[Rfam]
RNA sequence: AUACUUACCUGGCAGGGGUGAUACCAUGAUCAAGAAGGUUGGUUUGCCAAGUGAGGCCUCAAGCUCUUGCACUUAGCUUGUUGCUGACCUUGCAAUUCCCACAUGGUGGGAAUCUGACUGCAUUAAUUUCUUGAUAGUUGGGGACUGCGUUCGCCUUCUUCCCUG
Number, nucleotide and partner (000 for none) at each position: 001a000002u000003a000004c000005u000006u000007a000008c000009c000010u000011g000012g121013c120014a119015g118016g000017g048018g047019u046020g045021a044022u000023a043024c042025c041026a040027u038028g000029a000030u000031c000032a000033a000034g000035a000036a000037g000038g027039u000040u026041g025042g024043u023044u021045u020046g019047c018048c017049a090050a000051g000052u000053g088054a000055g085056g084057c083058c000059u000060c080061a079062a078063g077064c076065u000066c000067u000068u000069g000070c000071a000072c000073u000074u000075a000076g064077c063078u062079u061080g060081u000082u000083g057084c056085u055086g000087a000088c053089c000090u049091u000092g000093c116094a115095a000096u112097u111098c110099c000100c108101a107102c000103a000104u000105g000106g000107u101108g100109g000110g098111a097112a096113u000114c000115u094116g093117a000118c015119u014120g013121c012122a000123u000124u000125a000126a000127u000128u000129u000130c000131u000132u000133g000134a000135u000136a000137g000138u000139u000140g163141g162142g161143g160144a159145c000146u000147g156148c000149g154150u000151u000152c000153g000154c149155c000156u147157u000158c000159u144160u143161c142162c141163c140164u000165g000